[Rfam]
Nucleotides: 131
Stems, first nucleotide, its partner, number of pairs: 001056005015044006022037004070122003084105003090099001
Number, partner (000 for none) and nucleotide at each position: 001056c002055c003054u004053c005052u006000c007000a008000u009000u010000c011000u012000u013000g014000g015044c016043g017042c018041g019040u020039u021000c022037g023036g024035c025034u026000u027000c028000u029000g030000a031000a032000u033000a034025a035024g036023u037022c038000g039020a040019a041018c042017g043016c044015g045000a046000a047000u048000g049000u050000u051000g052005g053004g054003a055002g056001g057000g058000a059000a060000a061000g062000a063000a064000a065000a066000u067000g068000u069000u070122a071121c072120g073000u074000u075000u076000c077000u078000u079000c080000g081000g082000u083000u084105a085104c086103g087000a088000u089000g090099u091000c092000c093000u094000c095000a096000u097000a098000u099090g100000a101000c102000g103086c104085g105084u106000u107000a108000c109000u110000a111000u112000c113000c114000u115000c116000u117000g118000a119000g120072c121071g122070u123000u124000g125000c126000a127000c128000a129000u130000u131000c
The record is a 131-nucleotide RNA from Notodromas monacha, which matches "Small nucleolar RNA SNORA57" in Rfam.
Pairs were carried over by alignment from the consensus structure, which was predicted with PFOLD.
U99 belongs to the H/ACA class of snoRNAs which are thought to guide the sites of modification of uridines to pseudouridines, the target for this family is unknown.
Rfam classes the family as an H/ACA-box small nucleolar RNA.
It scores 49 bits against the family's covariance model.
Rfam links the family to the GO terms nucleolus and RNA processing.
On this family, see Vitali et al., Nucleic Acids Res 2003: "Identification of 13 novel human modification guide RNAs".